[Rfam]
Flavo-1 RNA: a 90-nucleotide RNA sequence from Flavobacteria bacterium BAL38.
The sequence is in the family's curated seed alignment.
Nucleotides: 090
Stems, first nucleotide, its partner, number of pairs: 009082003013078002018073002023068004029063011
Number, partner (000 for none) and nucleotide at each position: 001000g002000a003000a004000u005000a006000g007000c008000c009082c010081c011080g012000a013078u014077g015000g016000a017000a018073g019072u020000g021000g022000a023068a024067a025066u026065c027000c028000u029063g030062u031061u032060a033059u034058u035057g036056u037055g038054a039053g040000a041000u042000u043000g044000c045000c046000u047000c048000g049000c050000a051000a052000g053039c054038u055037c056036g057035c058034a059033a060032u061031g062030a063029c064000a065026g066025a067024u068023u069000a070000u071000a072019a073018c074000g075000g076000a077014c078013a079000g080011c081010g082009g083000a084000a085000c086000u087000g088000a089000g090000a